[Rfam]
Record summary:
Rfam assigns this 109-nucleotide RNA from Galerina marginata to the family "Small nucleolar RNA Z13/snr52". The family has 42 seed sequences and 1,203 matches in Rfam 15.1.

Nucleotides: 109
Stems, first nucleotide, its partner, number of pairs: 004107001025086004
Number, partner (000 for none) and nucleotide at each position: 001000u002000c003000u004107u005000u006000u007000u008000a009000a010000a011000u012000g013000a014000u015000g016000a017000a018000g019000c020000c021000a022000u023000u024000u025086c026085g027084g028083a029000u030000g031000u032000a033000a034000a035000g036000u037000a038000g039000u040000c041000c042000a043000a044000a045000g046000g047000a048000c049000u050000c051000g052000a053000a054000g055000u056000c057000c058000g059000a060000g061000a062000g063000c064000g065000c066000a067000a068000a069000a070000u071000c072000g073000u074000g075000u076000g077000g078000a079000u080000u081000u082000c083028u084027c085026c086025g087000u088000u089000g090000c091000c092000u093000u094000c095000c096000u097000u098000c099000u100000g101000a102000u103000c104000a105000c106000c107004a108000u109000c

Its family is annotated with nucleolus and RNA processing in the Gene Ontology. A search with the family's covariance model found it, with a score of 73 bits.